[Rfam]
This 141-nucleotide RNA sequence from Channa argus belongs to the Rfam family "Small nucleolar RNA SNORA29". A search with the family's covariance model found it, with a score of 56 bits. Rfam links the family to the GO terms RNA processing and nucleolus. A reference for the family is Huttenhofer et al. (2001), "RNomics: an experimental approach that identifies 201 candidates for novel, small, non-messenger RNAs in mouse", EMBO J. ACA29 is a member of the H/ACA class of snoRNA that guide the sites of modification of uridines to pseudouridines.
RNA sequence: AAUCCCAUUUUAGUACCUUUCAUUCGCAUCACCCUGAAUGGACGGCUAUGCUAAUGGGAUAGAAAAAAAACACUGUCAUGGUCUGAAGGUGUGGUUGGCUGAUUCCGCACCCCACCAAAUAAAUUGACAGCAUAUUGCCAC
Numbered sequence: 001a002a003u004c005c006c007a008u009u010u011u012a013g014u015a016c017c018u019u020u021c022a023u024u025c026g027c028a029u030c031a032c033c034c035u036g037a038a039u040g041g042a043c044g045g046c047u048a049u050g051c052u053a054a055u056g057g058g059a060u061a062g063a064a065a066a067a068a069a070a071c072a073c074u075g076u077c078a079u080g081g082u083c084u085g086a087a088g089g090u091g092u093g094g095u096u097g098g099c100u101g102a103u104u105c106c107g108c109a110c111c112c113c114a115c116c117a118a119a120u121a122a123a124u125u126g127a128c129a130g131c132a133u134a135u136u137g138c139c140a141c
Stems, first nucleotide, its partner, number of pairs: 004058004016045002019042001075128004093116003